[Rfam]
6S / SsrS RNA: a 182-nucleotide sequence from Shewanella sediminis.
RNA sequence: UGCUCCCUGGUAUACGCGUCAGUCGGCAAUGUCCCUGUGCCGAUAUUUACAAACCCAGGGUGAAUGCUUUAUUGACAUUGUGCAAGCUCGGCUCGUAUCGAGAAGCCUUAGGAUAUAAUCAUUUACCCGCCUUGAACCUACGGUUCAAGGGCUUACGCCGGCAACGGUAUUUUGGGGAGCAA
Numbered sequence: 001u002g003c004u005c006c007c008u009g010g011u012a013u014a015c016g017c018g019u020c021a022g023u024c025g026g027c028a029a030u031g032u033c034c035c036u037g038u039g040c041c042g043a044u045a046u047u048u049a050c051a052a053a054c055c056c057a058g059g060g061u062g063a064a065u066g067c068u069u070u071a072u073u074g075a076c077a078u079u080g081u082g083c084a085a086g087c088u089c090g091g092c093u094c095g096u097a098u099c100g101a102g103a104a105g106c107c108u109u110a111g112g113a114u115a116u117a118a119u120c121a122u123u124u125a126c127c128c129g130c131c132u133u134g135a136a137c138c139u140a141c142g143g144u145u146c147a148a149g150g151g152c153u154u155a156c157g158c159c160g161g162c163a164a165c166g167g168u169a170u171u172u173u174g175g176g177g178a179g180c181a182a
Base pairs, nucleotide, nucleotide: 002180003179004178005177006176007175008174009173010172012170013169014168015167017166018165019164031152032151033150034149036147037146039144040143041142058128059127060126062124063123064122065121066120069118070117071116072115074114076112082106083105087102088101089100090099091098

The literature on the family includes a 2005 paper in Nat Struct Mol Biol by Trotochaud and Wassarman, "A highly conserved 6S RNA structure is required for regulation of transcription".